[Rfam]
RNA sequence: UUGCCCCAUGAUGCUCAGGUCCGCCGCAUCUCCUGGUCUCGUGGGGUCGGUCGGCUGAUUGGCGACGGGAUUCCUCGUGCCCGCGGCAAUCAGCCGGCCGCUCU
Number, nucleotide and partner (000 for none) at each position: 001u000002u000003g047004c046005c045006c044007c043008a042009u041010g040011a000012u000013g000014c000015u036016c035017a034018g033019g032020u000021c000022c000023g000024c000025c000026g000027c000028a000029u000030c000031u000032c019033c018034u017035g016036g015037u000038c000039u000040c010041g009042u008043g007044g006045g005046g004047u003048c000049g099050g098051u097052c096053g095054g094055c093056u092057g091058a090059u089060u000061g000062g000063c000064g000065a000066c000067g000068g000069g000070a000071u000072u000073c000074c000075u000076c000077g000078u000079g000080c000081c000082c000083g000084c000085g000086g000087c000088a000089a059090u058091c057092a056093g055094c054095c053096g052097g051098c050099c049100g000101c000102u000103c000104u000
A member of the RNA family "EcpR1" from Martelella sp. AD-3, 104 nucleotides long. Lineage of the source: Bacteria > Pseudomonadati > Hyphomicrobiales > Aurantimonadaceae > Martelella. The base pairs follow the family's consensus structure, which was predicted with WAR. Perviously named SmelC291, SmrC10, or Sra33. The family's RNA type in Rfam is small RNA.